[Rfam]
Rfam assigns this 90-nucleotide RNA sequence from Capsicum annuum to the family "Small nucleolar RNA snoR26". Pairs were carried over by alignment from the consensus structure, which was predicted with WAR. For this family Rfam cites "Multiple snoRNA gene clusters from Arabidopsis" (Brown et al., RNA, 2001). It scores 75 bits against the family's covariance model. The source organism's lineage runs through Eukaryota, eudicotyledons, Pentapetalae, Solanoideae and Capsicum. Gene Ontology terms of the family: nucleolus and RNA processing.
RNA sequence: AAGGCAUCAAUGAUGAAUAAUACAAUUCGUUAUCCUUGCACUUUGAUUAUUAAAUGAAGAUAAUCAUGGGAAAUAUUAUCUGAGAUGCUU
Numbered sequence: 001a002a003g004g005c006a007u008c009a010a011u012g013a014u015g016a017a018u019a020a021u022a023c024a025a026u027u028c029g030u031u032a033u034c035c036u037u038g039c040a041c042u043u044u045g046a047u048u049a050u051u052a053a054a055u056g057a058a059g060a061u062a063a064u065c066a067u068g069g070g071a072a073a074u075a076u077u078a079u080c081u082g083a084g085a086u087g088c089u090u
Base pairs, nucleotide, nucleotide: 002090003089004088005087006086007085008084